[Rfam]
Description: Shown here is a 142-nucleotide RNA from Oryza meyeriana, a member of the family "small nucleolar RNA snoR137". Rfam links the family to the GO terms RNA processing and nucleolus. NCBI's taxonomy places the organism under Eukaryota, Spermatophyta, Poaceae, Oryzeae, Oryza meyeriana.

RNA sequence: GUUGCUUCACGACUGGAAGAAUGGCCUGAUGAUUAUGGUUCGGUCAUCCUGUAGAGAGAAGCAUAGAUUGAUUUUUGGCCAGAAUUAAACAGCAUGGCGCUUUAUUUCACCGCGUCAAUGUUACCUGUCUCCUGGCACAUUU
Number, nucleotide and partner (000 for none) at each position: 001g000002u000003u063004g062005c061006u060007u059008c058009a000010c000011g000012a000013c000014u000015g000016g000017a050018a000019g048020a000021a000022u046023g045024g044025c043026c042027u000028g000029a000030u000031g000032a000033u000034u000035a000036u000037g000038g000039u000040u000041c000042g026043g025044u024045c023046a022047u000048c019049c000050u017051g000052u000053a000054g000055a000056g000057a000058g008059a007060a006061g005062c004063a003064u000065a000066g000067a000068u000069u000070g000071a000072u000073u000074u000075u000076u000077g000078g136079c135080c134081a133082g132083a000084a130085u000086u000087a000088a000089a000090c000091a122092g121093c120094a000095u117096g116097g115098c114099g113100c000101u000102u000103u000104a000105u000106u000107u000108c000109a000110c000111c000112g000113c099114g098115u097116c096117a095118a000119u000120g093121u092122u091123a000124c000125c000126u000127g000128u000129c000130u084131c000132c082133u081134g080135g079136c078137a000138c000139a000140u000141u000142u000